[Rfam]
Nucleotides: 123
Base pairs, nucleotide, nucleotide: 005043006042012031014029057116058115059114060113061112062111064109071105072104073103074102075101076100077099
Number, partner (000 for none) and nucleotide at each position: 001000a002000a003000a004000a005043a006042a007000u008000u009000a010000g011000u012031g013000g014029u015000u016000u017000a018000u019000u020000g021000c022000u023000a024000g025000u026000c027000u028000a029014a030000c031012c032000u033000c034000u035000c036000g037000u038000a039000a040000a041000c042006u043005u044000c045000a046000g047000g048000a049000a050000c051000a052000a053000a054000u055000c056000a057116c058115c059114a060113u061112u062111g063000c064109u065000u066000u067000u068000g069000g070000g071105u072104g073103a074102a075101c076100u077099u078000c079000u080000a081000u082000u083000a084000u085000u086000u087000a088000u089000u090000u091000g092000u093000g094000a095000c096000u097000c098000a099077a100076g101075g102074u103073u104072c105071a106000g107000u108000u109064a110000a111062u112061g113060a114059u115058g116057g117000a118000a119000a120000a121000a122000a123000a
This 123-nucleotide sequence from Lupinus angustifolius belongs to the Rfam family "Small nucleolar RNA snoR74".
Its family is annotated with RNA processing and nucleolus in the Gene Ontology.
Rfam classes the family as an H/ACA-box small nucleolar RNA.
The organism belongs to Lupinus, within Eukaryota.